[Rfam]
RNA sequence: UCCUUCUCUUCAAACAACAAUCUGUGUCUACGCGCUCCUGCCUACUUCGGUAGUGGAGUUGAGUGCGAAGGCAGUUCGACGACCAACGAAGCCACUUCAUCAAUAGGUGUCUAUCCGUCGACAGAUUGGAGAGCAAUACCUUCAAUGAAGCUAUAUCUCGUCGAUCCUGAGCUCUUCGUGAGCUCGGUGAGACUGGAUGGCAACAUUGCUGGCGGCCGCCAAUUCUGAUCCAAAAUGCAUAAGCUCGUCGAGCCAGAUGAUGAGGGCGAACCAGGUGAAGCUACAUAC
Numbered sequence: 001u002c003c004u005u006c007u008c009u010u011c012a013a014a015c016a017a018c019a020a021u022c023u024g025u026g027u028c029u030a031c032g033c034g035c036u037c038c039u040g041c042c043u044a045c046u047u048c049g050g051u052a053g054u055g056g057a058g059u060u061g062a063g064u065g066c067g068a069a070g071g072c073a074g075u076u077c078g079a080c081g082a083c084c085a086a087c088g089a090a091g092c093c094a095c096u097u098c099a100u101c102a103a104u105a106g107g108u109g110u111c112u113a114u115c116c117g118u119c120g121a122c123a124g125a126u127u128g129g130a131g132a133g134c135a136a137u138a139c140c141u142u143c144a145a146u147g148a149a150g151c152u153a154u155a156u157c158u159c160g161u162c163g164a165u166c167c168u169g170a171g172c173u174c175u176u177c178g179u180g181a182g183c184u185c186g187g188u189g190a191g192a193c194u195g196g197a198u199g200g201c202a203a204c205a206u207u208g209c210u211g212g213c214g215g216c217c218g219c220c221a222a223u224u225c226u227g228a229u230c231c232a233a234a235a236u237g238c239a240u241a242a243g244c245u246c247g248u249c250g251a252g253c254c255a256g257a258u259g260a261u262g263a264g265g266g267c268g269a270a271c272c273a274g275g276u277g278a279a280g281c282u283a284c285a286u287a288c
Base pairs, nucleotide, nucleotide: 018128019127020126021125022124023123024122025121026072027071028070029069031067032066034064035063036062037061038058039057041055043052044051045050080120081119082118083117088111089110091108092107093106143208144207150201151200152199153198154197164188165187166186169185170184171183172182173181174180214282215281216280217277218276219275220274230266231265238259239258243253244252245251246250

This 288-nucleotide RNA sequence from Venturia inaequalis belongs to the Rfam family "A. fumigatus sRNA Afu_309". It is annotated as a small RNA. The family's consensus secondary structure was predicted with WAR. Rfam 15.1 lists 663 matches to the family in 646 species.